[Rfam]
Annotation: The family of this 50-nucleotide RNA sequence from Passiflora pittieri is "Plastid-ccsA-ndhD-2 3UTR RNA".
RNA sequence: UUUGUGAGAACUUUUUGAAUCAAGUAAUAGAGUGAUUCAAAAGGUUCUCA
Numbered sequence: 001u002u003u004g005u006g007a008g009a010a011c012u013u014u015u016u017g018a019a020u021c022a023a024g025u026a027a028u029a030g031a032g033u034g035a036u037u038c039a040a041a042a043g044g045u046u047c048u049c050a
Stems, first nucleotide, its partner, number of pairs: 005050018
Rfam describes the family as follows. Plastid ccsA-ndhD-2 is a non-coding RNA (ncRNA) recognised in plastids. It was found in the three prime untranslated region (3UTR) of ccsA and ndhD genes, its 3UTR location suggests a role in transcript maturation. For this family Rfam cites "Control of plastid gene expression: 3' inverted repeats act as mRNA processing and stabilizing elements, but do not terminate transcription" (Stern and Gruissem, Cell, 1987). The family has 421 seed sequences and 875 matches in Rfam 15.1. The family's consensus secondary structure was predicted with LocARNA.